Lysine riboswitch aptamer: a 181-nucleotide RNA sequence from Ornithinibacillus halotolerans. Rfam describes the family as follows. Riboswitches are metabolite binding domains within certain messenger RNAs that serve as precision sensors for their corresponding targets. The match comes from Rfam's covariance-model search (116 bits). The organism belongs to Ornithinibacillus, within Bacteria.

RNA sequence: CGAUGAGGUAGAGGUGCGAAUAAGAAGAGUAAGCAAUCGGAGUAUGACAUCGAUGAGGAUUGCUGAAAGGGUUAUUUGCCGAAGCGUAAUAGAAGUCAAGUCUAUUAUCCGCUGGGGUGUCUGCUGAAUAAGAGGCACACUGUCAUGCAAUGUUUUUUGUGCAUGGAGAACUACUGAUCAG
Numbered sequence: 001c002g003a004u005g006a007g008g009u010a011g012a013g014g015u016g017c018g019a020a021u022a023a024g025a026a027g028a029g030u031a032a033g034c035a036a037u038c039g040g041a042g043u044a045u046g047a048c049a050u051c052g053a054u055g056a057g058g059a060u061u062g063c064u065g066a067a068a069g070g071g072u073u074a075u076u077u078g079c080c081g082a083a084g085c086g087u088a089a090u091a092g093a094a095g096u097c098a099a100g101u102c103u104a105u106u107a108u109c110c111g112c113u114g115g116g117g118u119g120u121c122u123g124c125u126g127a128a129u130a131a132g133a134g135g136c137a138c139a140c141u142g143u144c145a146u147g148c149a150a151u152g153u154u155u156u157u158u159g160u161g162c163a164u165g166g167a168g169a170a171c172u173a174c175u176g177a178u179c180a181g
Base pairs, nucleotide, nucleotide: 007175008174009173010172011171016079017078018077019076020075021074022073023072032064033063034062035061036060037059038058083113084112085111086110087107088106089105090104091103092102093101114141115140117138118137119136120135121134122133143166144165145164146163147162148161149160